[Rfam]
Rfam assigns this 299-nucleotide RNA from Dictyocaulus viviparus to the family "Metazoan signal recognition particle RNA". Clan: SRP clan. The family's RNA type in Rfam is non-coding RNA gene. For this family Rfam cites "Towards the structure of the mammalian signal recognition particle" (Wild et al., Curr Opin Struct Biol, 2002). Rfam 15.1 lists 383,523 matches to the family in 1,221 species. The signal recognition particle (SRP) is a universally conserved ribonucleoprotein. The family's consensus secondary structure is taken from published work. A search with the family's covariance model found it, with a score of 227 bits.
RNA sequence: ACCGGGCGUCGUGGCGGGCGCCUGUGAGCCAGCUUCCGGGCGGUAGACUGGUGUGGAUGGAGUGAGGGGAGGAGUCCCGCGGUGGUCGUGGAGUGCGGCGACCGGGCGUCCGUGUCAAGCGUUGCGUCGCUAGGGUUGUGCCGUCGGAGGGUGGCACGACCCGGGCGGUCAAGGAGUGGUGUACGGCUCAGGACCGAAAGGGAGCAGGCAAAAACCACCGCGCGACACAGUGGCCGGAUAGCGCCCGUGAGCACCCAUCCUAUCGCGGCCUCUCCGACACCUUCAGACCUCCAGUCGAU
Numbered sequence: 001a002c003c004g005g006g007c008g009u010c011g012u013g014g015c016g017g018g019c020g021c022c023u024g025u026g027a028g029c030c031a032g033c034u035u036c037c038g039g040g041c042g043g044u045a046g047a048c049u050g051g052u053g054u055g056g057a058u059g060g061a062g063u064g065a066g067g068g069g070a071g072g073a074g075u076c077c078c079g080c081g082g083u084g085g086u087c088g089u090g091g092a093g094u095g096c097g098g099c100g101a102c103c104g105g106g107c108g109u110c111c112g113u114g115u116c117a118a119g120c121g122u123u124g125c126g127u128c129g130c131u132a133g134g135g136u137u138g139u140g141c142c143g144u145c146g147g148a149g150g151g152u153g154g155c156a157c158g159a160c161c162c163g164g165g166c167g168g169u170c171a172a173g174g175a176g177u178g179g180u181g182u183a184c185g186g187c188u189c190a191g192g193a194c195c196g197a198a199a200g201g202g203a204g205c206a207g208g209c210a211a212a213a214a215c216c217a218c219c220g221c222g223c224g225a226c227a228c229a230g231u232g233g234c235c236g237g238a239u240a241g242c243g244c245c246c247g248u249g250a251g252c253a254c255c256c257a258u259c260c261u262a263u264c265g266c267g268g269c270c271u272c273u274c275c276g277a278c279a280c281c282u283u284c285a286g287a288c289c290u291c292c293a294g295u296c297g298a299u
Stems, first nucleotide, its partner, number of pairs: 001044003004023007028041003046296006053289001058285005066275007077268008088258003093254004103247007110237002114234004119228001121226007128167004133162013169173001176218005186209003194201002